[Rfam]
Rfam assigns this 83-nucleotide sequence to the family "ZMP/ZTP riboswitch aptamer (pfl RNA motif)". The sequence is in the family's curated seed alignment.
RNA sequence: AUAGAAUCUGAUUACUGACGGAGAAAUGUGGGAUACCACAGGGGAAUCAGAUUUGCAGGAUGCCGACCGUCUGGGCAACAUUU
Numbered sequence: 001a002u003a004g005a006a007u008c009u010g011a012u013u014a015c016u017g018a019c020g021g022a023g024a025a026a027u028g029u030g031g032g033a034u035a036c037c038a039c040a041g042g043g044g045a046a047u048c049a050g051a052u053u054u055g056c057a058g059g060a061u062g063c064c065g066a067c068c069g070u071c072u073g074g075g076c077a078a079c080a081u082u083u
Stems, first nucleotide, its partner, number of pairs: 004054009015043002017071005028039004061077004